[Rfam]
RNA: c-di-AMP riboswitch aptamer (ydaO/yuaA leader)
Organism: Actinomyces sp. oral taxon 849
RNA sequence: AGGCAAGUGGAACCAACAACUCAAGUGGCAGGAACGGGGGAACCAACUACCGGUCGCCCGGACUGACAGUCCGAACGACCUUGGGGUGAAGCCCGCAUCUGCGGGCCGGGCGUCUCCAGUCCGAACCCGACAGCUCACCUCGUCGGCUCAACAGGAGAAAGCA
Numbered sequence: 001a002g003g004c005a006a007g008u009g010g011a012a013c014c015a016a017c018a019a020c021u022c023a024a025g026u027g028g029c030a031g032g033a034a035c036g037g038g039g040g041a042a043c044c045a046a047c048u049a050c051c052g053g054u055c056g057c058c059c060g061g062a063c064u065g066a067c068a069g070u071c072c073g074a075a076c077g078a079c080c081u082u083g084g085g086g087u088g089a090a091g092c093c094c095g096c097a098u099c100u101g102c103g104g105g106c107c108g109g110g111c112g113u114c115u116c117c118a119g120u121c122c123g124a125a126c127c128c129g130a131c132a133g134c135u136c137a138c139c140u141c142g143u144c145g146g147c148u149c150a151a152c153a154g155g156a157g158a159a160a161g162c163a
Base pairs, nucleotide, nucleotide: 034143035142036141037140038139039138044083045082084128085127086126092105093104094103095102108122109121110120111119